[Rfam]
RNA sequence: AUCACCGCCGGACGGACGGGGGUCGCGAGGGUUGGGGAACCCGAUGACCGCCCUCGUCCGAGAUGACCCAGGGUCCAGGGAGCCCCGGGCCGAUCGCUCCGGCGAAGGAG
Numbered sequence: 001a002u003c004a005c006c007g008c009c010g011g012a013c014g015g016a017c018g019g020g021g022g023u024c025g026c027g028a029g030g031g032u033u034g035g036g037g038a039a040c041c042c043g044a045u046g047a048c049c050g051c052c053c054u055c056g057u058c059c060g061a062g063a064u065g066a067c068c069c070a071g072g073g074u075c076c077a078g079g080g081a082g083c084c085c086c087g088g089g090c091c092g093a094u095c096g097c098u099c100c101g102g103c104g105a106a107g108g109a110g
Base pairs, nucleotide, nucleotide: 006104007103008102009101010100011099012098013060014059015058016057019055020054021053022052024050025049029042030041031040032039033038062095063094064093065091067089071085072084073083074082
RNA: Actinomyces-1 RNA